The family of this 108-nucleotide RNA sequence from Phocaeicola vulgatus is "Bacteroides sRNA BTnc049". A reference for the family is Ryan et al. (2020), "A high-resolution transcriptome map identifies small RNA regulation of metabolism in the gut microbe Bacteroides thetaiotaomicron", Nat Commun. The organism belongs to Phocaeicola vulgatus, within Bacteria. The match comes from Rfam's covariance-model search (91 bits).
RNA sequence: ACAAGGGAAGUUGUGAAACUUCUUAAUAGAAUAGUUUAGUUAAGUCUAGUUUAGUUUUUGUGUUGUAAAUCGGGAGCCUGCAAGAGUGCACGAGCUCCCGAUGUUUUU
Numbered sequence: 001a002c003a004a005g006g007g008a009a010g011u012u013g014u015g016a017a018a019c020u021u022c023u024u025a026a027u028a029g030a031a032u033a034g035u036u037u038a039g040u041u042a043a044g045u046c047u048a049g050u051u052u053a054g055u056u057u058u059u060g061u062g063u064u065g066u067a068a069a070u071c072g073g074g075a076g077c078c079u080g081c082a083a084g085a086g087u088g089c090a091c092g093a094g095c096u097c098c099c100g101a102u103g104u105u106u107u108u
Stems, first nucleotide, its partner, number of pairs: 001061005007022006033052002036049004069102009079090003